Source information
A member of the RNA family "Bacterial small subunit ribosomal RNA" from Ureaplasma urealyticum, 600 nucleotides of a longer RNA. Pairs were carried over by alignment from the consensus structure, which is taken from published work. Rfam links the family to the GO terms ribosome and structural constituent of ribosome. The source organism's lineage runs through Bacteria, Bacillati, Mycoplasmatota, Ureaplasma and Ureaplasma urealyticum serovar 7. The family has 99 seed sequences and 42,628 matches in Rfam 15.1.

RNA sequence: UGACGGGGACCCGCACAAGUGGUGGAGCAUGUUGCUUAAUUUGACAAUACACGUAGAACCUUACCUAGGUUUGACAUCUAUUGCGACGCUAUAGAAAUAUAGUUGAGGUUAACAAUAUGACAGGUGGUGCAUGGUUGUCGUCAGCUCGUGUCGUGAGAUGUUGGGUUAAGUCCCGCAACGAGCGCAACCCCUUUCGUUAGUUGCUUUUCUAGCGAUACUGCUACCGCAAGGUAGAGGAAGGUGGGGAUGACGUCAAAUCAUCAUGCCCCUUAUAUCUAGGGCUGCAAACGUGCUACAAUGGCUAAUACAAACUGCUGCAAAAUCGUAAGAUGAAGCGAAACAGAAAAAGUUAGUCUCAGUUCGGAUAGAGGGCUGCAAUUCGCCCUCUUGAAGUUGGAAUCACUAGUAAUCGCGAAUCAGACAUGUCGCGGUGAAUACGUUCUCGGGUCUUGUACACACCGCCCGUCAAACUAUGGGAGCUGGUAAUAUCUAAAACCGCAAAGCUAACCUUUUGGAGGUAUGCGUCUAGGGUAGGAUCGGUGACUGGAGUUAAGUCGUAACAAGGUAUCCCUACGAGAACGUGGGGAUGGAUCACCUCCU
Numbered sequence: 001u002g003a004c005g006g007g008g009a010c011c012c013g014c015a016c017a018a019g020u021g022g023u024g025g026a027g028c029a030u031g032u033u034g035c036u037u038a039a040u041u042u043g044a045c046a047a048u049a050c051a052c053g054u055a056g057a058a059c060c061u062u063a064c065c066u067a068g069g070u071u072u073g074a075c076a077u078c079u080a081u082u083g084c085g086a087c088g089c090u091a092u093a094g095a096a097a098u099a100u101a102g103u104u105g106a107g108g109u110u111a112a113c114a115a116u117a118u119g120a121c122a123g124g125u126g127g128u129g130c131a132u133g134g135u136u137g138u139c140g141u142c143a144g145c146u147c148g149u150g151u152c153g154u155g156a157g158a159u160g161u162u163g164g165g166u167u168a169a170g171u172c173c174c175g176c177a178a179c180g181a182g183c184g185c186a187a188c189c190c191c192u193u194u195c196g197u198u199a200g201u202u203g204c205u206u207u208u209c210u211a212g213c214g215a216u217a218c219u220g221c222u223a224c225c226g227c228a229a230g231g232u233a234g235a236g237g238a239a240g241g242u243g244g245g246g247a248u249g250a251c252g253u254c255a256a257a258u259c260a261u262c263a264u265g266c267c268c269c270u271u272a273u274a275u276c277u278a279g280g281g282c283u284g285c286a287a288a289c290g291u292g293c294u295a296c297a298a299u300g301g302c303u304a305a306u307a308c309a310a311a312c313u314g315c316u317g318c319a320a321a322a323u324c325g326u327a328a329g330a331u332g333a334a335g336c337g338a339a340a341c342a343g344a345a346a347a348a349g350u351u352a353g354u355c356u357c358a359g360u361u362c363g364g365a366u367a368g369a370g371g372g373c374u375g376c377a378a379u380u381c382g383c384c385c386u387c388u389u390g391a392a393g394u395u396g397g398a399a400u401c402a403c404u405a406g407u408a409a410u411c412g413c414g415a416a417u418c419a420g421a422c423a424u425g426u427c428g429c430g431g432u433g434a435a436u437a438c439g440u441u442c443u444c445g446g447g448u449c450u451u452g453u454a455c456a457c458a459c460c461g462c463c464c465g466u467c468a469a470a471c472u473a474u475g476g477g478a479g480c481u482g483g484u485a486a487u488a489u490c491u492a493a494a495a496c497c498g499c500a501a502a503g504c505u506a507a508c509c510u511u512u513u514g515g516a517g518g519u520a521u522g523c524g525u526c527u528a529g530g531g532u533a534g535g536a537u538c539g540g541u542g543a544c545u546g547g548a549g550u551u552a553a554g555u556c557g558u559a560a561c562a563a564g565g566u567a568u569c570c571c572u573a574c575g576a577g578a579a580c581g582u583g584g585g586g587a588u589g590g591a592u593c594a595c596c597u598c599c600u
Stems, first nucleotide, its partner, number of pairs: 001456002003453003007450007015440002019403005024296001026294008034285002040055001042053002064280007077120002079117005088103006123269002126267004132263002134258003137254001139252002144183006150159003162175004189246004194215007218237002221234005300355007312343003317336002322331003362393001367388007409432007459564001461561001464557002469551004474546003479541006487533004497524004503519003508515002566589010